This 119-nucleotide sequence from Pacificitalea manganoxidans belongs to the Rfam family "ALIL pseudoknot".
Rfam 15.1 lists 2,146 matches to the family in 1,098 species.
The family's consensus secondary structure is taken from published work.
A reference for the family is Mazauric et al. (2008), "Apical loop-internal loop RNA pseudoknots: a new type of stimulator of -1 translational frameshifting in bacteria", J Biol Chem.
A search with the family's covariance model found it, with a score of 86 bits.
RNA sequence: GGCUUAUUUUGCGAUGGCGGAGCUCGACCGCCGGUCGAAGUGAUGGUGGAUUUCGUUGAAGCGCAUCGCGAUGCGCAUGGGGUCGAGCCGAUCUGCACGGUGAGCCGCCGAAGGCGCCA
Numbered sequence: 001g002g003c004u005u006a007u008u009u010u011g012c013g014a015u016g017g018c019g020g021a022g023c024u025c026g027a028c029c030g031c032c033g034g035u036c037g038a039a040g041u042g043a044u045g046g047u048g049g050a051u052u053u054c055g056u057u058g059a060a061g062c063g064c065a066u067c068g069c070g071a072u073g074c075g076c077a078u079g080g081g082g083u084c085g086a087g088c089c090g091a092u093c094u095g096c097a098c099g100g101u102g103a104g105c106c107g108c109c110g111a112a113g114g115c116g117c118c119a
Stems, first nucleotide, its partner, number of pairs: 016032005078119003082115001089114001092111002095108002099106002